[Rfam]
RNA sequence: ACAUCGAGACCAAUGGGAGAAGAGAGAGAGUACAGCCUCAGCCGUCAGUAGUGUCUGAGGUGAAGGCUGUACCCUCUCUCUUCUUCUCUUGCUCUAUCGAUGG
Numbered sequence: 001a002c003a004u005c006g007a008g009a010c011c012a013a014u015g016g017g018a019g020a021a022g023a024g025a026g027a028g029a030g031u032a033c034a035g036c037c038u039c040a041g042c043c044g045u046c047a048g049u050a051g052u053g054u055c056u057g058a059g060g061u062g063a064a065g066g067c068u069g070u071a072c073c074c075u076c077u078c079u080c081u082u083c084u085u086c087u088c089u090u091g092c093u094c095u096a097u098c099g100a101u102g103g
Stems, first nucleotide, its partner, number of pairs: 005099002009093001012090002015087014030072009
RNA: MIR529 microRNA precursor family
Organism: Musa troglodytarum